[Rfam]
RNA sequence: AUAUAUUGCCUCUAGGGUUCCGGUGAAUAACGUCUGGUCCGAGAGAGGCGAGCUACCUUAAUCAAAUUGCAUUUAGACUUAAUUAAAUUUGAGUCCUCUUGUAGGUGGCUACACGGAGGGAAAAAAACCCGGGAGAA
Numbered sequence: 001a002u003a004u005a006u007u008g009c010c011u012c013u014a015g016g017g018u019u020c021c022g023g024u025g026a027a028u029a030a031c032g033u034c035u036g037g038u039c040c041g042a043g044a045g046a047g048g049c050g051a052g053c054u055a056c057c058u059u060a061a062u063c064a065a066a067u068u069g070c071a072u073u074u075a076g077a078c079u080u081a082a083u084u085a086a087a088u089u090u091g092a093g094u095c096c097u098c099u100u101g102u103a104g105g106u107g108g109c110u111a112c113a114c115g116g117a118g119g120g121a122a123a124a125a126a127a128c129c130c131g132g133g134a135g136a137a
Stems, first nucleotide, its partner, number of pairs: 007050006015040002020037002022034001023031002051110008112132001114135001118130003

A member of the RNA family "Guanidine-I riboswitch aptamer" from Aphanothece hegewaldii, 137 nucleotides long. The family has 100 seed sequences and 1,509 matches in Rfam 15.1. The source organism's lineage runs through Bacteria, Bacillati, Chroococcales, Aphanothecaceae and Aphanothece hegewaldii.